RNA sequence: GCUUUCUGAGUCACUGGAGUAGUUACAGAGAAACCAGCUUCUUUCAGAGAGC
Numbered sequence: 001g002c003u004u005u006c007u008g009a010g011u012c013a014c015u016g017g018a019g020u021a022g023u024u025a026c027a028g029a030g031a032a033a034c035c036a037g038c039u040u041c042u043u044u045c046a047g048a049g050a051g052c
Stems, first nucleotide, its partner, number of pairs: 001052009014037004019026002
MAT2A 3'UTR stem loop C: a 52-nucleotide RNA sequence from Monodelphis domestica. The literature on the family includes a 2011 paper in Genome Res by Parker et al., "New families of human regulatory RNA structures identified by comparative analysis of vertebrate genomes". The family's RNA type in Rfam is cis-regulatory element. The family's consensus secondary structure is taken from published work.